[Rfam]
RNA sequence: GGGGAUGUAGCUCAGAGGGAGAGCACCUGCCUUGCACGCAGGGGGUCGUCGGUUCGAAUCCGAUCAUCUCCA
Number, nucleotide and partner (000 for none) at each position: 001g071002g070003g069004g068005a067006u066007g065008u000009a000010g024011c023012u022013c021014a000015g000016a000017g000018g000019g000020a000021g013022a012023g011024c010025a000026c042027c041028u040029g039030c038031c000032u000033u000034g000035c000036a000037c000038g030039c029040a028041g027042g026043g000044g000045g000046u000047c000048g064049u063050c062051g061052g060053u000054u000055c000056g000057a000058a000059u000060c052061c051062g050063a049064u048065c007066a006067u005068c004069u003070c002071c001072a000
A member of the RNA family "tRNA" from Aminithiophilus ramosus, 72 nucleotides long. The base pairs follow the family's consensus structure, which is taken from published work. The match comes from Rfam's covariance-model search (70 bits). Taxonomically the source falls in Aminithiophilus (Bacteria, Thermotogati, Synergistota, Aminithiophilaceae).